A member of the RNA family "Bacterial RNase P class A" from Thalassorhabdomicrobium marinisediminis, 410 nucleotides long. Its family is annotated with ribonuclease P activity, dimeric ribonuclease P complex and tRNA processing in the Gene Ontology. It is annotated as a ribozyme.
[Rfam]
RNA sequence: GCGGAGGAUUGGAUGGCCGCGGGCGGGGCAACCCGUUCGAGGAAAGUCCGGACUCCAUCAAGACACGGUGCCGGGUAACGCCCGGGCAGGGCAACCUGACGGAGAGCGCCACAGAGAACAGACCGCCUGUCACACCAGAGGUUCGCCGAUGGAAACCUGUGGCAGGUCAGGGUGAAACGGUGGGGUAAGAGCCCACCGCGGCGGUGGCAACAUCGCUGGCAUGGCAAGCCCCACCGGGAGCAAUGCCAAAUAGGGGCCGCGCGUGGGCAACCACAGGAUCGUCUUGAUCCGAGCAGGUCCGGGUUGGCAGCUAGAGGGCGGCAGGCAACUGUCGCCUAAGAUGAAUGGUCAUCGAAUUGCGGGUUACGGCUCACAAGGAACAAAAUCCGGCUUAUAGAUCCUCCGCGUUU
Number, nucleotide and partner (000 for none) at each position: 001g406002c405003g404004g403005a402006g401007g400008a399009u398010u397011g395012g353013a352014u351015g350016g349017c348018c347019g000020c039021g038022g037023g036024c035025g034026g033027g032028g000029c000030a000031a000032c027033c026034c025035g024036u023037u022038c021039g020040a000041g000042g000043a000044a393045a392046g391047u000048c390049c389050g388051g387052a386053c240054u239055c238056c237057a000058u000059c000060a000061a285062g284063a000064c000065a000066c236067g235068g234069u233070g232071c085072c084073g083074g082075g081076u000077a000078a000079c000080g000081c075082c074083c073084g072085g071086g100087c098088a097089g096090g095091g000092c000093a000094a000095c090096c089097u088098g087099a000100c086101g231102g230103a000104g000105a000106g229107c228108g225109c224110c223111a000112c000113a000114g000115a000116g000117a000118a000119c000120a000121g000122a000123c171124c170125g167126c166127c165128u164129g163130u162131c161132a160133c159134a000135c000136c000137a000138g000139a000140g000141g000142u000143u000144c000145g000146c000147c000148g000149a000150u000151g000152g000153a000154a000155a000156c000157c000158u000159g133160u132161g131162g130163c129164a128165g127166g126167u125168c000169a000170g124171g123172g000173u000174g000175a000176a000177a000178c000179g197180g196181u195182g194183g193184g192185g000186u000187a000188a000189g000190a000191g000192c184193c183194c182195a181196c180197c179198g220199c218200g217201g216202c215203g214204g213205u212206g211207g000208c000209a000210a000211c206212a205213u204214c203215g202216c201217u200218g199219g000220c198221a000222u000223g110224g109225c108226a000227a000228g107229c106230c102231c101232c070233a069234c068235c067236g066237g056238g055239a054240g053241c000242a000243a000244u309245g308246c307247c306248a000249a000250a000251u000252a000253g000254g300255g299256g298257c297258c296259g000260c000261g000262c000263g000264u000265g000266g000267g000268c000269a000270a000271c000272c000273a000274c000275a000276g290277g289278a288279u287280c286281g000282u000283c000284u062285u061286g280287a279288u278289c277290c276291g000292a000293g000294c000295a000296g258297g257298u256299c255300c254301g000302g000303g000304u000305u000306g247307g246308c245309a244310g000311c000312u000313a000314g000315a000316g000317g336318g335319c334320g333321g332322c331323a330324g329325g000326c000327a000328a000329c324330u323331g322332u321333c320334g319335c318336c317337u000338a000339a000340g000341a000342u000343g000344a000345a000346u000347g018348g017349u016350c015351a014352u013353c012354g000355a000356a000357u000358u000359g000360c000361g000362g000363g000364u000365u000366a000367c000368g000369g000370c000371u000372c000373a000374c000375a000376a000377g000378g000379a000380a000381c000382a000383a000384a000385a000386u052387c051388c050389g049390g048391c046392u045393u044394a000395u011396a000397g010398a009399u008400c007401c006402u005403c004404c003405g002406c001407g000408u000409u000410u000

It scores 299 bits against the family's covariance model.